Rfam assigns this 149-nucleotide RNA sequence from Actinidia chinensis to the family "Small nucleolar RNA snoR2/U65". The family's consensus secondary structure was predicted with WAR. Gene Ontology terms of the family: RNA processing and nucleolus. A search with the family's covariance model found it, with a score of 91 bits. Clan: SNORA65 clan. The family's RNA type in Rfam is H/ACA-box small nucleolar RNA. NCBI's taxonomy places the organism under Eukaryota, Magnoliopsida, Gunneridae, Ericales, Actinidia chinensis. A reference for the family is Shaw et al. (1998), "Localization and processing from a polycistronic precursor of novel snoRNAs in maize", J Cell Sci.

RNA sequence: GGUCCGAUGCCAUGUCGCCAGGAGCGAUACAGCAAUGAUCGGCAAUGUUAUGAUUGGACCAAAAUUGAUCUCAUGUUUCGCAUUUUGAUAGGAAUCUGUGAAUCGACUCAUCCCGUUCGAUCACGUGGUCAUUUACUGUGAUUACAUUU
Dot-bracket structure: .((((((((...(((.((..(..((......)).....)..)).)))...).)))))))..................(((((........((....((.((.(...............).)).))...))......)))))........
Numbered sequence: 001g002g003u004c005c006g007a008u009g010c011c012a013u014g015u016c017g018c019c020a021g022g023a024g025c026g027a028u029a030c031a032g033c034a035a036u037g038a039u040c041g042g043c044a045a046u047g048u049u050a051u052g053a054u055u056g057g058a059c060c061a062a063a064a065u066u067g068a069u070c071u072c073a074u075g076u077u078u079c080g081c082a083u084u085u086u087g088a089u090a091g092g093a094a095u096c097u098g099u100g101a102a103u104c105g106a107c108u109c110a111u112c113c114c115g116u117u118c119g120a121u122c123a124c125g126u127g128g129u130c131a132u133u134u135a136c137u138g139u140g141a142u143u144a145c146a147u148u149u
Stems, first nucleotide, its partner, number of pairs: 002059007009051001013047003017043002021039001024033002078141005091130002097125002100122002103119001